Shown here is a 353-nucleotide sequence from Aptenodytes forsteri, a member of the family "7SK RNA". Rfam's curators write: 7SK was discovered as an abundant small nuclear RNA in the mid-70s but a possible function has only recently been suggested. Two independent studies have found that 7SK RNA binds the CDK9/cyclin T complex (known as elongation factor P-TEFb). P-TEFb activates transcription by phosphorylating the C-terminal domain of RNA polymerase II. This process is negatively regulated by the 7SK RNP. The secondary structure of 7SK RNA shown here was proposed by Wasserman and Steitz on the basis of chemical modification and enzymatic cleavage experiments. Pairs were carried over by alignment from the consensus structure, which is taken from published work. The family is grouped with related families in Rfam's "7SK clan". The family's RNA type in Rfam is non-coding RNA gene. Rfam 15.1 lists 49,373 matches to the family in 668 species.
RNA sequence: GGAUGUGAGGGCAAUCUGGCUGCGACAUCUGUCACCCCAUUGAUCGCCAGGGUUGAUUCGGCUGAUCUGGCUGGCUAGGCGGGUGUCCCCUUCCUCCCUCACCGCUCCAUGUGCGUCCCUCCCGAAGCUGCGCGCUCGGUCGAAGAGGACGACCUUCCCCGAUAGAGACGUACCGUUCAUCAGUCAAGGGUAUACAGUAGCUGCACUCCCUGCUAGAACUUCCCUCCUCUGAUGAAGUCGUCUGCUCUGGUCACGGGCUAUGCUCUCUGCACUCUCCCUGGGGCUAAAGUAAACAUUACCGAGGAGAAAAUGUGCACGAUUUACAAAUGCAUAGCACUUCACCACAUGUAGGU
Dot-bracket structure: (((.(((((((..(...((....((((((((((.(((((..(((((((...........))).)))))))..))...)))))))))).)).)...)))))))...)))........(.(((((((.((.....))))))(((....(((......))).)))..)))..).............................(.(......(.(((......((.(..((((.......................................................................)))).).))....))).).......).).........................